[Rfam]
The record is a 78-nucleotide RNA sequence from Lusitaniella coriacea, which matches "tRNA" in Rfam. The organism belongs to Lusitaniella coriacea, within Bacteria. Pairs were carried over by alignment from the consensus structure, which is taken from published work. By type it is a transfer RNA.
RNA sequence: GCUCCUGUGGCGGAAUUGGAAGACGCGGCAGACUUAAAAUCUGUUUUUCAGUUGUGGGUUCGACCCCCACCAGGAGUA
Numbered sequence: 001g002c003u004c005c006u007g008u009g010g011c012g013g014a015a016u017u018g019g020a021a022g023a024c025g026c027g028g029c030a031g032a033c034u035u036a037a038a039a040u041c042u043g044u045u046u047u048u049c050a051g052u053u054g055u056g057g058g059u060u061c062g063a064c065c066c067c068c069a070c071c072a073g074g075a076g077u078a
Stems, first nucleotide, its partner, number of pairs: 001077007010026003028044005054070005